[Rfam]
Rfam assigns this 48-nucleotide RNA sequence to the family "ssnA RNA". Rfam classes the family as a cis-regulatory element.
RNA sequence: AGACGGAUAGCUGCAACGUAGUGCUUCGCGCACGGGCUGACACCUAUC
Numbered sequence: 001a002g003a004c005g006g007a008u009a010g011c012u013g014c015a016a017c018g019u020a021g022u023g024c025u026u027c028g029c030g031c032a033c034g035g036g037c038u039g040a041c042a043c044c045u046a047u048c
Base pairs, nucleotide, nucleotide: 008039009038010037011036012035021033022032023031024030